[Rfam]
RNA: L31-Actinobacteria ribosomal protein leader
Organism: Streptomyces alkaliterrae
RNA sequence: UCGGCUCCGGUUCACGUCGCGCACAGGGCGCGGCGACCCGGCGCC
Numbered sequence: 001u002c003g004g005c006u007c008c009g010g011u012u013c014a015c016g017u018c019g020c021g022c023a024c025a026g027g028g029c030g031c032g033g034c035g036a037c038c039c040g041g042c043g044c045c
Base pairs, nucleotide, nucleotide: 003045004044005043007041008040009039010038015035016034017033018032019031020030021029022028